[Rfam]
RNA sequence: GUGCAGCAGGCUUGGUACCGGGCACGCCGGAGGUGGGUAGUGUGGCGGCAGGCAGCAGGCCUCGCGGGGCUGCUGGUGGUGGUGGAGCAGGACGACCGGCGCCCGUCCUCCUCCUCCUCCAACAGCGGCCCCGCGCUGCCAGCUGCCCGCAGCACAAUCACCAACCCCCAGCGUACCCGGCUAAACACCGUGGGCCC
Numbered sequence: 001g002u003g004c005a006g007c008a009g010g011c012u013u014g015g016u017a018c019c020g021g022g023c024a025c026g027c028c029g030g031a032g033g034u035g036g037g038u039a040g041u042g043u044g045g046c047g048g049c050a051g052g053c054a055g056c057a058g059g060c061c062u063c064g065c066g067g068g069g070c071u072g073c074u075g076g077u078g079g080u081g082g083u084g085g086a087g088c089a090g091g092a093c094g095a096c097c098g099g100c101g102c103c104c105g106u107c108c109u110c111c112u113c114c115u116c117c118u119c120c121a122a123c124a125g126c127g128g129c130c131c132c133g134c135g136c137u138g139c140c141a142g143c144u145g146c147c148c149g150c151a152g153c154a155c156a157a158u159c160a161c162c163a164a165c166c167c168c169c170a171g172c173g174u175a176c177c178c179g180g181c182u183a184a185a186c187a188c189c190g191u192g193g194g195c196c197c
Base pairs, nucleotide, nucleotide: 001195002194004192005191007190012185013184018180019179020178021177022176024174025173026172032166033165034164037161038160040158041157048150049149051147052146054144055143056142058140059139060138063135064134065133066132067131068130069129070128071127075126077124078123080122082120084119085118087116090111094107095106096105
RNA: MIR1144 microRNA precursor family